The family of this 77-nucleotide sequence from Sciurus vulgaris is "Small nucleolar RNA SNORD81". The family has 22 seed sequences and 317 matches in Rfam 15.1. The source organism's lineage runs through Eukaryota, Eumetazoa, Theria, Sciurinae and Sciurus. Clan: SNORD26 clan. By type it is a C/D-box small nucleolar RNA. For this family Rfam cites "Classification of gas5 as a multi-small-nucleolar-RNA (snoRNA) host gene and a member of the 5'-terminal oligopyrimidine gene family reveals common features of snoRNA host genes" (Smith and Steitz, Mol Cell Biol, 1998). The family's consensus secondary structure was predicted with PFOLD.
RNA sequence: CUGAAUACAUGAUGAUCUCACCCCAGCUUGAACUCUCUCACUGAUCACUUGAUGACAGUAAAAGAUCUGAUAUUCUC
Numbered sequence: 001c002u003g004a005a006u007a008c009a010u011g012a013u014g015a016u017c018u019c020a021c022c023c024c025a026g027c028u029u030g031a032a033c034u035c036u037c038u039c040a041c042u043g044a045u046c047a048c049u050u051g052a053u054g055a056c057a058g059u060a061a062a063a064g065a066u067c068u069g070a071u072a073u074u075c076u077c
Stems, first nucleotide, its partner, number of pairs: 003075005